[Rfam]
RNA sequence: UGGACACGUAAGUUUUCUUCCAGUUUCUCUUCUGUGUGGGGGAAAAACUGUACAAGUGUCCUAUAGUAACACAGAAGCUAUCUGUUCAACUCUGAUGAGUUAAUAGAGUUGGAUCGUUCCACUUCUGACAGCU
Numbered sequence: 001u002g003g004a005c006a007c008g009u010a011a012g013u014u015u016u017c018u019u020c021c022a023g024u025u026u027c028u029c030u031u032c033u034g035u036g037u038g039g040g041g042g043a044a045a046a047a048c049u050g051u052a053c054a055a056g057u058g059u060c061c062u063a064u065a066g067u068a069a070c071a072c073a074g075a076a077g078c079u080a081u082c083u084g085u086u087c088a089a090c091u092c093u094g095a096u097g098a099g100u101u102a103a104u105a106g107a108g109u110u111g112g113a114u115c116g117u118u119c120c121a122c123u124u125c126u127g128a129c130a131g132c133u
Base pairs, nucleotide, nucleotide: 002061003060004059005058006057007056009054012053013052024045025044026042027041028040029039030038072127073126074125075124076123077122091107092106093105094104
RNA: Small Cajal body specific RNA 24